[Rfam]
RNA sequence: UCAAAACAAACAAAAAGGAAAUGAACUCAAUUUUGACAGUAAAUAAAUUUUGGUGGUGGCACUUACGAAUCAGCUAAUCGUGAGAGGUAACACCUGUGUAUAUUGUCAAAACAAAAAGAUAUUACAAAAAGGCUUGUC
Number, nucleotide and partner (000 for none) at each position: 001u000002c000003a000004a000005a000006a000007c000008a000009a000010a000011c000012a000013a000014a000015a000016a000017g000018g000019a000020a000021a000022u000023g000024a000025a000026c000027u000028c000029a000030a000031u000032u000033u000034u000035g000036a106037c105038a104039g000040u000041a000042a000043a103044u102045a101046a000047a099048u098049u000050u096051u000052g094053g093054u092055g091056g000057u000058g000059g088060c087061a000062c086063u085064u084065a000066c080067g000068a078069a000070u076071c000072a000073g000074c000075u000076a070077a000078u068079c000080g066081u000082g000083a000084g064085a063086g062087g060088u059089a000090a000091c055092a054093c053094c052095u000096g050097u000098g048099u047100a000101u045102a044103u043104u038105g037106u036107c000108a000109a000110a000111a000112c000113a000114a000115a000116a000117a000118g000119a000120u000121a000122u000123u000124a000125c000126a000127a000128a000129a000130a000131g000132g000133c000134u000135u000136g000137u000138c000
The record is a 138-nucleotide sequence from Paludibacter propionicigenes, which matches "Bacteroidete tryptophan peptide leader RNA" in Rfam. Taxonomically the source falls in Paludibacter propionicigenes (Bacteria, Bacteroidota, Bacteroidales, Paludibacter).